Shown here is a 167-nucleotide RNA from Rhizoctonia solani, a member of the family "small nucleolar RNA snR35". Pairs were carried over by alignment from the consensus structure, which was predicted with RNAalifold.

RNA sequence: UUUGUGCGGCGGCACGGCUCUGCAAUUUCCCCAGUGUUGCUCACCUCUGCGCAAUUACAUUACGCGGUAGUUCGAGUGUCAAGCCGUGCUCUGAGCGACUUGGACGUCUUAGUACCCAAUUGUCUUCUUGCGUGAAGCAAGUGGAUGGGUCGGUGGUUCAAACAUUU
Numbered sequence: 001u002u003u004g005u006g007c008g009g010c011g012g013c014a015c016g017g018c019u020c021u022g023c024a025a026u027u028u029c030c031c032c033a034g035u036g037u038u039g040c041u042c043a044c045c046u047c048u049g050c051g052c053a054a055u056u057a058c059a060u061u062a063c064g065c066g067g068u069a070g071u072u073c074g075a076g077u078g079u080c081a082a083g084c085c086g087u088g089c090u091c092u093g094a095g096c097g098a099c100u101u102g103g104a105c106g107u108c109u110u111a112g113u114a115c116c117c118a119a120u121u122g123u124c125u126u127c128u129u130g131c132g133u134g135a136a137g138c139a140a141g142u143g144g145a146u147g148g149g150u151c152g153g154u155g156g157u158u159c160a161a162a163c164a165u166u167u
Stems, first nucleotide, its partner, number of pairs: 022089003039077004047067004100161006120148006127141002130138002
A reference for the family is Li et al. (2005), "Identification and functional analysis of 20 Box H/ACA small nucleolar RNAs (snoRNAs) from Schizosaccharomyces pombe", J Biol Chem. Gene Ontology terms of the family: RNA processing and nucleolus. A search with the family's covariance model found it, with a score of 39 bits.